A member of the RNA family "SAM riboswitch aptamer (S box leader)" from Anoxybacillus flavithermus, 108 nucleotides long.

RNA sequence: UUCUUAUCAAGAGAAGGGGAGGGACUGGCCCGAUGAACCUUCAGCAACCAGCCGAAAGCGGUCAGGUGCUAAAUCCAGCGAAUUGGCGUUCAAUUCGGAAGAUAAGAA
Number, nucleotide and partner (000 for none) at each position: 001u108002u107003c106004u105005u104006a103007u102008c101009a000010a000011g000012a000013g042014a041015a040016g039017g038018g000019g000020a000021g031022g030023g029024a000025c078026u077027g076028g075029c023030c022031c021032g000033a000034u000035g000036a000037a000038c017039c016040u015041u014042c013043a070044g069045c068046a067047a000048c066049c065050a062051g000052c060053c000054g000055a000056a000057a000058g000059c000060g052061g000062u050063c000064a000065g049066g048067u046068g045069c044070u043071a000072a000073a000074u100075c028076c027077a026078g025079c097080g096081a095082a094083u093084u092085g000086g000087c000088g000089u000090u000091c000092a084093a083094u082095u081096c080097g079098g000099a000100a074101g008102a007103u006104a005105a004106g003107a002108a001